[Rfam]
RNA sequence: ACAUUGCGAACUGGUGGUGGGUCUGCGCGAAGCGGCCUUGACCAGUCAUGUCCAUGGACGAGACACCAAGCCGCCCGAACUUCAGGCGGCUUUUUU
Numbered sequence: 001a002c003a004u005u006g007c008g009a010a011c012u013g014g015u016g017g018u019g020g021g022u023c024u025g026c027g028c029g030a031a032g033c034g035g036c037c038u039u040g041a042c043c044a045g046u047c048a049u050g051u052c053c054a055u056g057g058a059c060g061a062g063a064c065a066c067c068a069a070g071c072c073g074c075c076c077g078a079a080c081u082u083c084a085g086g087c088g089g090c091u092u093u094u095u096u
Base pairs, nucleotide, nucleotide: 011045012044013043014042015041017039019038020037021036022035024034025033026032049060050059051058052057068092069091070090071089072088073087074086075085077083078082